[Rfam]
RNA sequence: AUUUGUCUUUGAGGCGGGGAGCAUUUCCCCACCGGCGGUAUAGCCCGCGAGCCCUUGGGAGCAUGAUCCGGUGAGAUUCCGGAGCCGACCGUAUAGUCGGGACGAGAAAAGGCAUGU
Numbered sequence: 001a002u003u004u005g006u007c008u009u010u011g012a013g014g015c016g017g018g019g020a021g022c023a024u025u026u027c028c029c030c031a032c033c034g035g036c037g038g039u040a041u042a043g044c045c046c047g048c049g050a051g052c053c054c055u056u057g058g059g060a061g062c063a064u065g066a067u068c069c070g071g072u073g074a075g076a077u078u079c080c081g082g083a084g085c086c087g088a089c090c091g092u093a094u095a096g097u098c099g100g101g102a103c104g105a106g107a108a109a110a111g112g113c114a115u116g117u
Base pairs, nucleotide, nucleotide: 004114005113006112007111008110009109010108017029018028019027031097032096033087034086035048036047037046038045043085044084053061067083068082069081070080071079089100090099091098
Dot-bracket structure: ...(((((((......(((.......))).[[((((((....[[))))....(.......).....(((((.......)))))]])).(((....]]))).......)))))))...